[Rfam]
RNA: small nucleolar RNA snoR19
RNA sequence: AAAAAUGAUGAUAUUUUCGCGCAAACAUUAAAUUCAUACUACGAUGUAGCAUGAUGAAAACUCUGUCAUCCUUGAACUGAUUUUUUUUUU
Dot-bracket structure: .((((..............................................................................))))...